The family of this 47-nucleotide sequence from Chenopodium quinoa is "Plastid-rpl16 group II-D1 intron". From the family's description: Plastid-rpl16 is a non-coding RNA (ncRNA) recognised in plastids. NCBI's taxonomy places the organism under Eukaryota, Viridiplantae, Euphyllophyta, Caryophyllales, Chenopodium.
RNA sequence: AAGAGCUUUGAACCAAUCACGACUAAGAGGGUUGUCUCAAGAACAAA
Number, nucleotide and partner (000 for none) at each position: 001a000002a000003g000004a000005g000006c000007u041008u040009u000010g038011a037012a000013c000014c034015a033016a032017u031018c000019a000020c000021g000022a000023c000024u000025a000026a000027g000028a000029g000030g000031g017032u016033u015034g014035u000036c000037u011038c010039a000040a008041g007042a000043a000044c000045a000046a000047a000